[Rfam]
RNA sequence: UGCUUAUCAAGAGUGGUGGAGGGAUAAGGCCCGAUGAAACCACAGCAACCGGCCCUGCGACAAACAGGGCGCCAGGUGCUAAAUCCUGCCGCAAGGCGAAGAUGAGCG
Numbered sequence: 001u002g003c004u005u006a007u008c009a010a011g012a013g014u015g016g017u018g019g020a021g022g023g024a025u026a027a028g029g030c031c032c033g034a035u036g037a038a039a040c041c042a043c044a045g046c047a048a049c050c051g052g053c054c055c056u057g058c059g060a061c062a063a064a065c066a067g068g069g070c071g072c073c074a075g076g077u078g079c080u081a082a083a084u085c086c087u088g089c090c091g092c093a094a095g096g097c098g099a100a101g102a103u104g105a106g107c108g
Stems, first nucleotide, its partner, number of pairs: 001108008013043005021032003028087001029085001044080004049076002051073003084100001090096001
A member of the RNA family "SAM riboswitch aptamer (S box leader)" from Trichlorobacter lovleyi, 108 nucleotides long.
From the family's description: The SAM riboswitch is found upstream of a number of genes which code for proteins involved in methionine or cysteine biosynthesis in Gram-positive bacteria.